RNA sequence: AUCUUCACUACUAGCAAAAUCGAUCUUAUCUUUCGCCUUUUACUAAAGAUAACCGUGUUAGUAGAUUCACUGAAGAUGAAGGAAUUUUUGGAGGGUCUGUUCAAGGACCA
Numbered sequence: 001a002u003c004u005u006c007a008c009u010a011c012u013a014g015c016a017a018a019a020u021c022g023a024u025c026u027u028a029u030c031u032u033u034c035g036c037c038u039u040u041u042a043c044u045a046a047a048g049a050u051a052a053c054c055g056u057g058u059u060a061g062u063a064g065a066u067u068c069a070c071u072g073a074a075g076a077u078g079a080a081g082g083a084a085u086u087u088u089u090g091g092a093g094g095g096u097c098u099g100u101u102c103a104a105g106g107a108c109c110a
Stems, first nucleotide, its partner, number of pairs: 003075004008064008017056001026052008094109005
The family of this 110-nucleotide RNA from Entamoeba dispar is "U5 spliceosomal RNA". The family's RNA type in Rfam is spliceosomal small nuclear RNA.